RNA sequence: GGUAGUAGCAAAUAUUCAAAUGGGAACUUUGAAGACUGAAGUGGGGAAAGGUUCCGCGUCAACAGCAGUUGGACGCGGGUCAGUCGAUCCUAAGAGAUGGGGAAGCUCCGUUUCAACGAGCGCAAUUCGCUUGCGCCACCAUCGAAAGGGAAUCCGGUUAAGAUUCCGGAACUUGGAUGUGGAUUCUUCACGGCAACGUAACAGAAUGCGGAGACGCCGGCGGGAGCCCUGGGAGGAGUUUUCUUUUCUUCUUAACAGCCUAACACCCUGGAAUUGGUUUAUCCGGAGAGGGGGUCUUAUGGCUGGAAGAGCGUCGCCCUUGCUGCGACGUCCGGUGCGCUUGCGACGGUCCUUGAAAAUCCGCAGGAAGGAAUAGUUUUCACGCCAAGUCGUACUCAUAACCGCAGCAGGUCUCCAAGGUUAACAGCCUCUAGUUGA
Numbered sequence: 001g002g003u004a005g006u007a008g009c010a011a012a013u014a015u016u017c018a019a020a021u022g023g024g025a026a027c028u029u030u031g032a033a034g035a036c037u038g039a040a041g042u043g044g045g046g047a048a049a050g051g052u053u054c055c056g057c058g059u060c061a062a063c064a065g066c067a068g069u070u071g072g073a074c075g076c077g078g079g080u081c082a083g084u085c086g087a088u089c090c091u092a093a094g095a096g097a098u099g100g101g102g103a104a105g106c107u108c109c110g111u112u113u114c115a116a117c118g119a120g121c122g123c124a125a126u127u128c129g130c131u132u133g134c135g136c137c138a139c140c141a142u143c144g145a146a147a148g149g150g151a152a153u154c155c156g157g158u159u160a161a162g163a164u165u166c167c168g169g170a171a172c173u174u175g176g177a178u179g180u181g182g183a184u185u186c187u188u189c190a191c192g193g194c195a196a197c198g199u200a201a202c203a204g205a206a207u208g209c210g211g212a213g214a215c216g217c218c219g220g221c222g223g224g225a226g227c228c229c230u231g232g233g234a235g236g237a238g239u240u241u242u243c244u245u246u247u248c249u250u251c252u253u254a255a256c257a258g259c260c261u262a263a264c265a266c267c268c269u270g271g272a273a274u275u276g277g278u279u280u281a282u283c284c285g286g287a288g289a290g291g292g293g294g295u296c297u298u299a300u301g302g303c304u305g306g307a308a309g310a311g312c313g314u315c316g317c318c319c320u321u322g323c324u325g326c327g328a329c330g331u332c333c334g335g336u337g338c339g340c341u342u343g344c345g346a347c348g349g350u351c352c353u354u355g356a357a358a359a360u361c362c363g364c365a366g367g368a369a370g371g372a373a374u375a376g377u378u379u380u381c382a383c384g385c386c387a388a389g390u391c392g393u394a395c396u397c398a399u400a401a402c403c404g405c406a407g408c409a410g411g412u413c414u415c416c417a418a419g420g421u422u423a424a425c426a427g428c429c430u431c432u433a434g435u436u437g438a
Stems, first nucleotide, its partner, number of pairs: 015033006034436004043416004049396002054078006063071002085392003089149002094143002096112003100109003153170005173388004178384005183378001190199003207365006216350004221345002224342004229335003232252006256305005265295005274286004312330006402411002418430004

This 438-nucleotide part of an RNA from Pichia kudriavzevii belongs to the Rfam family "Eukaryotic large subunit ribosomal RNA". Taxonomically the source falls in Pichia (Eukaryota, Fungi, Pichiomycetes, Pichiales). The match comes from Rfam's covariance-model search (3261 bits).